[Rfam]
RNA sequence: GUGCAUCCAGUAGGAGUUGAACCUACAUUUUGUUAAUUAUGAGUUGGGCUCCUUAACCAUUUAGGCAUGGAUGC
Dot-bracket structure: ..((((((.(((((.......)))))............(((..(((((...........))))).)))))))))
The family of this 74-nucleotide RNA from Nyssa sinensis is "Plastid-ycf2 5UTR RNA". The family's RNA type in Rfam is cis-regulatory element. Rfam's curators write: Plastid ycf2 is a non-coding RNA (ncRNA) recognised in plastids. It was found in the prime untranslated region (5UTR) of ycf2 genes, it presents a tRNA-like motif which suggests it can be involved in mRNA maturation, particularly involved in defining the precise 5' end of the transcript. The organism belongs to Nyssa, within Eukaryota.